[Rfam]
Nucleotides: 083
Base pairs, nucleotide, nucleotide: 008075009074010073011072012071013070014069017068018067019066020065021064022063024061027058028057029056030055031054034051035050036049037048
Number, partner (000 for none) and nucleotide at each position: 001000a002000g003000g004000c005000a006000c007000a008075g009074a010073g011072a012071g013070a014069g015000a016000u017068a018067g019066g020065c021064a022063g023000g024061g025000u026000c027058u028057g029056a030055u031054c032000u033000g034051c035050a036049g037048c038000c039000u040000u041000c042000a043000u044000g045000g046000c047000a048037g049036c050035u051034g052000u053000u054031g055030a056029u057028c058027a059000u060000c061024c062000g063022u064021u065020g066019c067018c068017u069014c070013u071012c072011u073010c074009u075008u076000u077000c078000u079000c080000u081000c082000u083000g

The family of this 83-nucleotide RNA sequence from Myotis myotis is "mir-574 microRNA precursor family". The family is grouped with related families in Rfam's "mir-574 microRNA precursor clan". NCBI's taxonomy places the organism under Eukaryota, Sarcopterygii, Boreoeutheria, Vespertilionidae, Myotis.